[Rfam]
Nucleotides: 052
Base pairs, nucleotide, nucleotide: 001028002027003026004025013041016038017037018036022033023032
Number, partner (000 for none) and nucleotide at each position: 001028a002027c003026g004025g005000a006000c007000a008000c009000u010000c011000u012000g013041g014000c015000a016038g017037g018036g019000c020000a021000a022033g023032c024000a025004c026003c027002g028001u029000a030000a031000a032023g033022c034000a035000g036018c037017c038016c039000c040000g041013c042000c043000c044000c045000a046000u047000c048000u049000g050000c051000c052000c
The family of this 52-nucleotide RNA sequence is "RAGATH-5 RNA".
The sequence is in the family's curated seed alignment.
Rfam links the family to the GO term catalytic activity.